[Rfam]
RNA sequence: UUAAAUGCAUUGAAAAAGGAAAGUAAUAUAAAUAUAGGUUACAGAGAGGAAACGGUGGUGUGAAGUUUCUACUGAGGAUUUAUAUGAAGUGCCCUUUGGAGCAGAAGUCUGAAGAUUUAGUAAGGCUAUCCAGGUUCGCCUGUUACAGCGAUAAGGUAUUUUUGUACCUGAAUGAGGUGGGAUAUUUUAUAUCUAAUUAGGGUGGAACCGCGAAUGCAUACAUAGCUUCGUCUCUAUA
Numbered sequence: 001u002u003a004a005a006u007g008c009a010u011u012g013a014a015a016a017a018g019g020a021a022a023g024u025a026a027u028a029u030a031a032a033u034a035u036a037g038g039u040u041a042c043a044g045a046g047a048g049g050a051a052a053c054g055g056u057g058g059u060g061u062g063a064a065g066u067u068u069c070u071a072c073u074g075a076g077g078a079u080u081u082a083u084a085u086g087a088a089g090u091g092c093c094c095u096u097u098g099g100a101g102c103a104g105a106a107g108u109c110u111g112a113a114g115a116u117u118u119a120g121u122a123a124g125g126c127u128a129u130c131c132a133g134g135u136u137c138g139c140c141u142g143u144u145a146c147a148g149c150g151a152u153a154a155g156g157u158a159u160u161u162u163u164g165u166a167c168c169u170g171a172a173u174g175a176g177g178u179g180g181g182a183u184a185u186u187u188u189a190u191a192u193c194u195a196a197u198u199a200g201g202g203u204g205g206a207a208c209c210g211c212g213a214a215u216g217c218a219u220a221c222a223u224a225g226c227u228u229c230g231u232c233u234c235u236a237u238a
Base pairs, nucleotide, nucleotide: 007102008101015097016096017095018094026085027084028083029082030081031080037073038072039071048070049069050068051067052066053065104129106127107126108125109124110123131142132141133140180194181193182192183191184190185189199235200234201233202232210231211230212229213228214227
Rfam assigns this 238-nucleotide sequence from Clostridium sp. BL8 to the family "T-box leader". About the family: Uncharged tRNA acts as the effector for transcription antitermination of genes in the T-box leader family. T-boxes are found upstream of many aminoacyl-tRNA synthetase genes and some amino acid biosynthetic genes usually in Gram-positive bacteria. Pairs were carried over by alignment from the consensus structure, which is taken from published work. The source organism's lineage runs through Bacteria, Clostridia, Eubacteriales, Clostridiaceae and Clostridium. For this family Rfam cites "The GA motif: an RNA element common to bacterial antitermination systems, rRNA, and eukaryotic RNAs" (Winkler et al., RNA, 2001).